RNA sequence: CGGGAGCUAUGAUACGCAAAGAAUUAUACAGAAUUAACUCCUUUGCCACUAAAGCUCCCUAAAUUAAAUUGAACUCUGAUGACUCUGGCAACAGGAAGGAACUGGCCAGAGACAGAUACGGUUCAGACAAUU
Numbered sequence: 001c002g003g004g005a006g007c008u009a010u011g012a013u014a015c016g017c018a019a020a021g022a023a024u025u026a027u028a029c030a031g032a033a034u035u036a037a038c039u040c041c042u043u044u045g046c047c048a049c050u051a052a053a054g055c056u057c058c059c060u061a062a063a064u065u066a067a068a069u070u071g072a073a074c075u076c077u078g079a080u081g082a083c084u085c086u087g088g089c090a091a092c093a094g095g096a097a098g099g100a101a102c103u104g105g106c107c108a109g110a111g112a113c114a115g116a117u118a119c120g121g122u123u124c125a126g127a128c129a130a131u132u
Base pairs, nucleotide, nucleotide: 002059003058004057005056006055007054016046017045018044019043023039025037069126070125071124072123073122074121075120083111084110085109088106089105091103

The family of this 132-nucleotide RNA from Cloeon dipterum is "Small Cajal body specific RNA 8". The family's consensus secondary structure is taken from published work. A search with the family's covariance model found it, with a score of 86 bits. Gene Ontology terms of the family: RNA processing, nucleolus and Cajal body. scaRNAs are a specific class of small nuclear RNAs which localise to the Cajal bodies and guide the modification of RNA polymerase II transcribed spliceosomal RNAs U1, U2, U4, U5 and U12. NCBI's taxonomy places the organism under Eukaryota, Bilateria, Pancrustacea, Altocrustacea, Cloeon. Rfam classes the family as a small Cajal body RNA.